[Rfam]
RNA sequence: CCAAGCUUGCCAACACUCUGGUGCAUGACGGAGACCGUGUCGUGUUCCUAUUUUGGCGCAAGCAAGAUUUAUACUGCAUAUUACUCACCGCGACGCUCGAAUUCCUACGAGUGUGGAGGUCCAUUAUUUCACUUUUGCAUACAU
Numbered sequence: 001c002c003a004a005g006c007u008u009g010c011c012a013a014c015a016c017u018c019u020g021g022u023g024c025a026u027g028a029c030g031g032a033g034a035c036c037g038u039g040u041c042g043u044g045u046u047c048c049u050a051u052u053u054u055g056g057c058g059c060a061a062g063c064a065a066g067a068u069u070u071a072u073a074c075u076g077c078a079u080a081u082u083a084c085u086c087a088c089c090g091c092g093a094c095g096c097u098c099g100a101a102u103u104c105c106u107a108c109g110a111g112u113g114u115g116g117a118g119g120u121c122c123a124u125u126a127u128u129u130c131a132c133u134u135u136u137g138c139a140u141a142c143a144u
Stems, first nucleotide, its partner, number of pairs: 007061003020048002023045002026042004075139004088119002091116001093114006
Rfam assigns this 144-nucleotide sequence from Geotrichum candidum to the family "Small nucleolar RNA snR80". The match comes from Rfam's covariance-model search (56 bits). The family's consensus secondary structure was predicted with WAR. By type it is an H/ACA-box small nucleolar RNA. On this family, see Schattner et al., Nucleic Acids Res 2004: "Genome-wide searching for pseudouridylation guide snoRNAs: analysis of the Saccharomyces cerevisiae genome". NCBI's taxonomy places the organism under Eukaryota, Fungi, Dikarya, Dipodascaceae, Geotrichum.